RNA sequence: CACAGGACUUAAACUAACUUGAGUGCCCGGUUGGAAACAACCGGAGUAGAACCGCUUAAAUUCGGGGAAGCCUUACAGAGAAUGUUGGUAAUCCCGAGCCAAGUUCCGGAUCAAACCGGAAAAGGUGUAGAGACUUAACAGGCGGUACCUUCCUUCGUGGAAGAAGAUGGUAAAGAGAAAGUCCAGACCACAAAUUUCUGCGCA
Numbered sequence: 001c002a003c004a005g006g007a008c009u010u011a012a013a014c015u016a017a018c019u020u021g022a023g024u025g026c027c028c029g030g031u032u033g034g035a036a037a038c039a040a041c042c043g044g045a046g047u048a049g050a051a052c053c054g055c056u057u058a059a060a061u062u063c064g065g066g067g068a069a070g071c072c073u074u075a076c077a078g079a080g081a082a083u084g085u086u087g088g089u090a091a092u093c094c095c096g097a098g099c100c101a102a103g104u105u106c107c108g109g110a111u112c113a114a115a116c117c118g119g120a121a122a123a124g125g126u127g128u129a130g131a132g133a134c135u136u137a138a139c140a141g142g143c144g145g146u147a148c149c150u151u152c153c154u155u156c157g158u159g160g161a162a163g164a165a166g167a168u169g170g171u172a173a174a175g176a177g178a179a180a181g182u183c184c185a186g187a188c189c190a191c192a193a194a195u196u197u198c199u200g201c202g203c204a
Stems, first nucleotide, its partner, number of pairs: 005026001007024006030041003051146005057140001062097006071088002098126002104120003130184001132183005148170002151167002154164002189202001191200002

Group I catalytic intron: a 204-nucleotide sequence from Arsenicibacter rosenii. Rfam's curators write: Group I catalytic introns are large self-splicing ribozymes. Taxonomically the source falls in Arsenicibacter (Bacteria, Pseudomonadati, Bacteroidota, Spirosomataceae).